[Rfam]
RNA: pan motif
Organism: Schwartzia succinivorans
RNA sequence: UUGAUAACAUCCGUUGACGGAGUUAUACAAAAACGCCUGCUCACAAUAAAACGACUGCUUGGAUCAUGUGACCGAGACAGGGUA
Number, nucleotide and partner (000 for none) at each position: 001u030002u029003g028004a026005u025006a024007a023008c022009a000010u021011c020012c000013g000014u000015u000016g000017a000018c000019g000020g011021a010022g008023u007024u006025a005026u004027a000028c003029a002030a001031a000032a000033a000034c000035g000036c000037c000038u000039g000040c000041u000042c000043a000044c000045a000046a000047u000048a000049a000050a000051a000052c000053g000054a000055c080056u079057g078058c076059u075060u074061g073062g072063a000064u071065c070066a000067u000068g000069u000070g065071a064072c062073c061074g060075a059076g058077a000078c057079a056080g055081g000082g000083u000084a000